A member of the RNA family "Acido-Lenti-1 RNA" from Kolteria novifilia, 46 nucleotides long. The source organism's lineage runs through Bacteria, Pseudomonadati, Planctomycetia, Kolteriaceae and Kolteria.
[Rfam]
RNA sequence: CCAGGGGUUGAAACCCCAGGCUACUAACCGGCGCCGCUCCGCGGCU
Numbered sequence: 001c002c003a004g005g006g007g008u009u010g011a012a013a014c015c016c017c018a019g020g021c022u023a024c025u026a027a028c029c030g031g032c033g034c035c036g037c038u039c040c041g042c043g044g045c046u
Stems, first nucleotide, its partner, number of pairs: 001020002004017005033045005
It scores 37 bits against the family's covariance model.